This 164-nucleotide part of an RNA from Wickerhamiella sorbophila belongs to the Rfam family "Eukaryotic small subunit ribosomal RNA". Gene Ontology terms of the family: structural constituent of ribosome and ribosome. It scores 1784 bits against the family's covariance model. A reference for the family is Yusupov et al. (2001), "Crystal structure of the ribosome at 5.5 A resolution", Science. The family is grouped with related families in Rfam's "SSU clan". Pairs were carried over by alignment from the consensus structure, which is taken from published work.

RNA sequence: CCGCCCGUCGUUACUACCGAUUGAAUGGCUUAGUGAGGCCUCCGGAUGCGAAUUCACUUGUGGGCAACCGCAACGAAGUCGCAGAAGCUGGACAAACUUGGUCAUUUAGAGGAAGUACAAGUCGUAACAAGGUUUCCGUAGGUGAACCUGCGGAAGGAUCAUUA
Dot-bracket structure: (.(..((.(..((((.((..(.((((((((.(((..(.((..(...(((((.(((....((((....))))...))).)))))...)..)).)..))).)))))))))..)).))))...).))...)..).((((((((((....))))))))))........